[Rfam]
Nucleotides: 193
Stems, first nucleotide, its partner, number of pairs: 002191002006187021028165002031162005044148002048142007056134012069121004076114003080110011
Number, partner (000 for none) and nucleotide at each position: 001000g002191a003190a004000u005000a006187a007186g008185c009184a010183u011182u012181g013180u014179c015178g016177g017176c018175a019174c020173u021172u022171g023170a024169g025168a026167a027000u028165g029164u030000a031162a032161a033160g034159u035158g036000a037000u038000g039000a040000u041000c042000a043000g044148c045147u046000a047000u048142c049141g050140u051139a052138u053137u054136u055000c056134a057133u058132g059131u060130c061129g062128u063127a064126a065125u066124a067123g068000u069121a070120g071119u072118c073000a074000c075000g076114u077113u078112a079000g080110g081109g082108u083107g084106a085105u086104a087103u088102a089101a090100c091000g092000a093000g094000g095000c096000g097000a098000g099000a100090g101089u102088u103087a104086u105085a106084u107083c108082a109081u110080c111000a112078u113077a114076g115000u116000g117000c118072g119071a120070u121069u122000u123067c124066u125065a126064u127063u128062a129061u130060g131059a132058c133057a134056u135000a136054a137053a138052a139051u140050a141049c142048g143000u144000u145000u146000u147045g148044g149000a150000u151000u152000u153000u154000a155000a156000a157000a158035c159034a160033c161032u162031u163000g164029a165028c166000c167026u168025u169024c170023u171022u172021a173020a174019g175018u176017g177016c178015u179014g180013a181012u182011a183010a184009u185008g186007c187006u188000u189000c190003u191002u192000u193000c
A member of the RNA family "MIR868 microRNA precursor family" from Arabidopsis thaliana, 193 nucleotides long. The sequence is in the family's curated seed alignment. NCBI's taxonomy places the organism under Eukaryota, Euphyllophyta, Spermatophyta, Brassicales, Arabidopsis.